[Rfam]
SAH (S-adenosyl-L-homocysteine) riboswitch aptamer: a 101-nucleotide sequence from Acidovorax sp. CF316. The match comes from Rfam's covariance-model search (56 bits). On this family, see Wang et al., Mol Cell 2008: "Riboswitches that sense S-adenosylhomocysteine and activate genes involved in coenzyme recycling". Gene Ontology terms of the family: S-adenosylhomocysteine metabolic process and regulation of gene expression.
RNA sequence: UCCCCCGAGGAGCGUUGCAGCGGACAAGCCUGGCACCCAGAUUGCCAGGCAACCAUCCGUCAGGCUCGGGGCCGACCACCCCGCAACGACGCUCACCUGUU
Numbered sequence: 001u002c003c004c005c006c007g008a009g010g011a012g013c014g015u016u017g018c019a020g021c022g023g024a025c026a027a028g029c030c031u032g033g034c035a036c037c038c039a040g041a042u043u044g045c046c047a048g049g050c051a052a053c054c055a056u057c058c059g060u061c062a063g064g065c066u067c068g069g070g071g072c073c074g075a076c077c078a079c080c081c082c083g084c085a086a087c088g089a090c091g092c093u094c095a096c097c098u099g100u101u
Stems, first nucleotide, its partner, number of pairs: 003071006021059004

NCBI's taxonomy places the organism under Bacteria, Pseudomonadota, Burkholderiales, Comamonadaceae, Acidovorax.